RNA: Hepatitis C virus stem-loop SL8001 RNA
RNA sequence: UUGUCCAGGAGGGCCGUCAACCACAUCAAGUCCGUGUGGAAGGACCUCCUGGAAGACU
Numbered sequence: 001u002u003g004u005c006c007a008g009g010a011g012g013g014c015c016g017u018c019a020a021c022c023a024c025a026u027c028a029a030g031u032c033c034g035u036g037u038g039g040a041a042g043g044a045c046c047u048c049c050u051g052g053a054a055g056a057c058u
Stems, first nucleotide, its partner, number of pairs: 004053009014043002021039006